[Rfam]
RNA sequence: ACUGGGAGUUGCGGCGCGCUCCUGUAAUCCAGCUACCUGGAGGUCAGACGUUGAGGAUGGUUUGAGAGCGGGACUCACUGUGCGCAGGCGCAAUCGCGUUGACCAGGCGUCCGCACUAAGCUGGCCAUCAACAUGGUGGCAUCGGGAGAGCCCGAUGCCUCCAGGUUUGUUAAGGAGGGGUGCACCGGGCCAGGGGGGAAACCCAGCAGCCAAAAAUCCCCGUGGUCUGCAGUAGUGGGAUCGCGCCCGUGAGUGGGGCCCUGCGUUCAGCCCGCUCGAUACAACUGGACCAACGUCUAU
Numbered sequence: 001a002c003u004g005g006g007a008g009u010u011g012c013g014g015c016g017c018g019c020u021c022c023u024g025u026a027a028u029c030c031a032g033c034u035a036c037c038u039g040g041a042g043g044u045c046a047g048a049c050g051u052u053g054a055g056g057a058u059g060g061u062u063u064g065a066g067a068g069c070g071g072g073a074c075u076c077a078c079u080g081u082g083c084g085c086a087g088g089c090g091c092a093a094u095c096g097c098g099u100u101g102a103c104c105a106g107g108c109g110u111c112c113g114c115a116c117u118a119a120g121c122u123g124g125c126c127a128u129c130a131a132c133a134u135g136g137u138g139g140c141a142u143c144g145g146g147a148g149a150g151c152c153c154g155a156u157g158c159c160u161c162c163a164g165g166u167u168u169g170u171u172a173a174g175g176a177g178g179g180g181u182g183c184a185c186c187g188g189g190c191c192a193g194g195g196g197g198g199a200a201a202c203c204c205a206g207c208a209g210c211c212a213a214a215a216a217u218c219c220c221c222g223u224g225g226u227c228u229g230c231a232g233u234a235g236u237g238g239g240a241u242c243g244c245g246c247c248c249g250u251g252a253g254u255g256g257g258g259c260c261c262u263g264c265g266u267u268c269a270g271c272c273c274g275c276u277c278g279a280u281a282c283a284a285c286u287g288g289a290c291c292a293a294c295g296u297c298u299a300u
Stems, first nucleotide, its partner, number of pairs: 001044003004023006028041003046298008058287005066277007078270003082266004087262002090259002094256004099251001104249001106247005111239002114237005120230002123227006130167003134163003138159009170174001177220005188211003195204003